[Rfam]
RNA sequence: GCCUCCAGGGAAUAAGGGCAUCUCUCGCCUCCUUUUCUGGAUGGACACUCCCUUCUAAUGGUAAAUGGAAACUCCCUUUCUCAGCAGGCUACUUGCAGCGUCCUGGGAGCCCAGAGUGACUGCAGCAGCUGCCACUACCCCAGAAAGAAAGGCUCCCACAAC
Dot-bracket structure: ...(...((((.(.((((.....(....(..((.....))..)).....))))(((....(.(((.((......)))))..)(((((.....((((((....(..............).))))))...)))...)).....)))...).....))))..)..
Numbered sequence: 001g002c003c004u005c006c007a008g009g010g011a012a013u014a015a016g017g018g019c020a021u022c023u024c025u026c027g028c029c030u031c032c033u034u035u036u037c038u039g040g041a042u043g044g045a046c047a048c049u050c051c052c053u054u055c056u057a058a059u060g061g062u063a064a065a066u067g068g069a070a071a072c073u074c075c076c077u078u079u080c081u082c083a084g085c086a087g088g089c090u091a092c093u094u095g096c097a098g099c100g101u102c103c104u105g106g107g108a109g110c111c112c113a114g115a116g117u118g119a120c121u122g123c124a125g126c127a128g129c130u131g132c133c134a135c136u137a138c139c140c141c142a143g144a145a146a147g148a149a150a151g152g153c154u155c156c157c158a159c160a161a162c
Stems, first nucleotide, its partner, number of pairs: 004160001008157004013148001015053004024044001029043001032040002054144003061082001063079003067076002083136002085131003093125006103118001
This 162-nucleotide sequence from Mesocricetus auratus belongs to the Rfam family "FGF-1 internal ribosome entry site (IRES)". NCBI's taxonomy places the organism under Eukaryota, Opisthokonta, Vertebrata, Myomorpha, Mesocricetus. The literature on the family includes a 2004 paper in Mol Cell Biol by Martineau et al., "Internal Ribosome Entry Site Structural Motifs Conserved among Mammalian Fibroblast Growth Factor 1 Alternatively Spliced mRNAs". The family has 6 seed sequences and 127 matches in Rfam 15.1. Pairs were carried over by alignment from the consensus structure, which is taken from published work. Rfam links the family to the GO term ribosome binding. This family represents the FGF-1 internal ribosome entry site (IRES). The FGF-1 IRES is present in the 5' UTR of the mRNA and allows cap-independent translation. It is thought that FGF-1 IRES activity is strictly controlled and highly tissue specific. A search with the family's covariance model found it, with a score of 124 bits.